[Rfam]
RNA sequence: GUUGAAAAAGCCACAGCCGUCGUGAGGCGGUGUCGGAAAGCCACGGGUCUCCAGAAGAGAGAUAGCCGGGUUGCCUGCU
Numbered sequence: 001g002u003u004g005a006a007a008a009a010g011c012c013a014c015a016g017c018c019g020u021c022g023u024g025a026g027g028c029g030g031u032g033u034c035g036g037a038a039a040g041c042c043a044c045g046g047g048u049c050u051c052c053a054g055a056a057g058a059g060a061g062a063u064a065g066c067c068g069g070g071u072u073g074c075c076u077g078c079u
Stems, first nucleotide, its partner, number of pairs: 001079001004075001011036002016031006034065001039072004044068003047063003